[Rfam]
RNA sequence: CUCUCUGUCAAUUCCCCGUCGCUACUUCUCAAAGGAGAAAUAUAAAUUAGACGCUAUUUAUACGAUAUAUUUACUCAUAAUGUGUAGCAUUGUCUUUUCGUGGCGGGUUGUUUGAUAUCAUUCCUCGUCGUAAGGCGGAGUGUGAUGUCCAUUGAAGAUGGGGUUAACCGGUCAGGCAGGCAACUGAACAAUCGGACCUCUCGCAACUUGCGGACAAAAGAUCGCAAUGCU
Number, nucleotide and partner (000 for none) at each position: 001c000002u000003c000004u000005c000006u000007g000008u000009c000010a000011a000012u000013u000014c000015c000016c000017c000018g000019u000020c000021g000022c000023u000024a000025c000026u000027u000028c000029u000030c000031a000032a000033a000034g000035g000036a000037g000038a000039a000040a000041u000042a000043u000044a000045a000046a000047u000048u000049a000050g000051a000052c000053g000054c000055u000056a000057u000058u000059u000060a000061u000062a000063c000064g000065a000066u000067a000068u000069a000070u000071u000072u000073a000074c000075u000076c000077a000078u000079a000080a000081u000082g000083u000084g000085u000086a231087g230088c229089a228090u227091u226092g225093u224094c220095u219096u000097u218098u217099c000100g215101u214102g000103g211104c210105g209106g208107g207108u206109u205110g204111u203112u151113u000114g149115a148116u147117a146118u145119c144120a143121u142122u000123c140124c000125u138126c137127g136128u135129c134130g000131u000132a000133a000134g129135g128136c127137g126138g125139a000140g123141u000142g121143u120144g119145a118146u117147g116148u115149c114150c000151a112152u000153u157154g000155a000156a000157g153158a000159u000160g200161g199162g198163g197164u196165u000166a000167a000168c195169c194170g193171g192172u191173c000174a000175g000176g000177c186178a185179g184180g000181c000182a000183a000184c179185u178186g177187a000188a000189c000190a000191a172192u171193c170194g169195g168196a164197c163198c162199u161200c160201u000202c000203g111204c110205a109206a108207c107208u106209u105210g104211c103212g000213g000214a101215c100216a000217a098218a097219a095220g094221a000222u000223c000224g093225c092226a091227a090228u089229g088230c087231u086
Protozoan signal recognition particle RNA: a 231-nucleotide RNA from Phaeodactylum tricornutum.
The family's consensus secondary structure is taken from published work.
Rfam 15.1 lists 111 matches to the family in 100 species.
It scores 80 bits against the family's covariance model.
On this family, see Batey et al., Science 2000: "Crystal structure of the ribonucleoprotein core of the signal recognition particle".
Rfam links the family to the GO terms signal recognition particle, endoplasmic reticulum targeting and SRP-dependent cotranslational protein targeting to membrane, signal sequence recognition.
The family's RNA type in Rfam is non-coding RNA gene.
The family is grouped with related families in Rfam's "SRP clan".